A member of the RNA family "small nucleolar RNA snoR21" from Plasmodium malariae, 146 nucleotides long. Rfam classes the family as a C/D-box small nucleolar RNA. The match comes from Rfam's covariance-model search (126 bits). Gene Ontology terms of the family: nucleolus and RNA processing. The literature on the family includes a 2007 paper in RNA by Chakrabarti et al., "Structural RNAs of known and unknown function identified in malaria parasites by comparative genomics and RNA analysis".

[Rfam]
RNA sequence: AUUUUAAUGAUGAAAAGAUGACGAGUAUGAAAAAAUGAAGAUUAUUUAUUAUUAUUUUUAAAAACAUGUUUUAUGUAUUUAAUAAUAGUUAGUAAAUGUAUUCUUCAUUUUUCAAGCAUGAUUAUGUGAGGCAUUUGUCUGAAAAA
Numbered sequence: 001a002u003u004u005u006a007a008u009g010a011u012g013a014a015a016a017g018a019u020g021a022c023g024a025g026u027a028u029g030a031a032a033a034a035a036u037g038a039a040g041a042u043u044a045u046u047u048a049u050u051a052u053u054a055u056u057u058u059u060a061a062a063a064a065c066a067u068g069u070u071u072u073a074u075g076u077a078u079u080u081a082a083u084a085a086u087a088g089u090u091a092g093u094a095a096a097u098g099u100a101u102u103c104u105u106c107a108u109u110u111u112u113c114a115a116g117c118a119u120g121a122u123u124a125u126g127u128g129a130g131g132c133a134u135u136u137g138u139c140u141g142a143a144a145a146a
Stems, first nucleotide, its partner, number of pairs: 017135004031112009040080002